This 72-nucleotide RNA from Sapajus apella belongs to the Rfam family "Small nucleolar RNA SNORD113/SNORD114 family". The family's consensus secondary structure is taken from published work. It is annotated as a C/D-box small nucleolar RNA. The imprinted human domain at 14q32 contains two clusters of tandemly repeated small nucleolar RNAs named 14q(I) and 14q(II) snoRNAs. The match comes from Rfam's covariance-model search (73 bits). The family has 59 seed sequences and 5,721 matches in Rfam 15.1.

[Rfam]
RNA sequence: UAGGCUGAUGAUGACUGCCGGUGGCGUAUGAGUCUUAUAUGUUGAAUAUGUGUCUGGAGCUCUGAGGUCCAU
Numbered sequence: 001u002a003g004g005c006u007g008a009u010g011a012u013g014a015c016u017g018c019c020g021g022u023g024g025c026g027u028a029u030g031a032g033u034c035u036u037a038u039a040u041g042u043u044g045a046a047u048a049u050g051u052g053u054c055u056g057g058a059g060c061u062c063u064g065a066g067g068u069c070c071a072u
Stems, first nucleotide, its partner, number of pairs: 003069004